[Rfam]
RNA sequence: GGGCGCGUAGCUCAGUCGGUAGAGCAACUGGCUUUUAACCAGUAGGUCCUAGGUUCGACCCCUAGCGCGCUCA
Numbered sequence: 001g002g003g004c005g006c007g008u009a010g011c012u013c014a015g016u017c018g019g020u021a022g023a024g025c026a027a028c029u030g031g032c033u034u035u036u037a038a039c040c041a042g043u044a045g046g047u048c049c050u051a052g053g054u055u056c057g058a059c060c061c062c063u064a065g066c067g068c069g070c071u072c073a
Stems, first nucleotide, its partner, number of pairs: 001072007010025004027043005049065005
Dot-bracket structure: (((((((..((((........)))).(((((.......))))).....(((((.......)))))))))))).